Notes: The record is a 45-nucleotide RNA sequence from Persicirhabdus sediminis, which matches "Acido-Lenti-1 RNA" in Rfam. The family's RNA type in Rfam is small RNA.
[Rfam]
RNA sequence: CCUAGGGCUGCGCCCUAGGCUAGGCUGUUUUGCUCCUUCGGAGCU
Numbered sequence: 001c002c003u004a005g006g007g008c009u010g011c012g013c014c015c016u017a018g019g020c021u022a023g024g025c026u027g028u029u030u031u032g033c034u035c036c037u038u039c040g041g042a043g044c045u
Stems, first nucleotide, its partner, number of pairs: 001019008032044005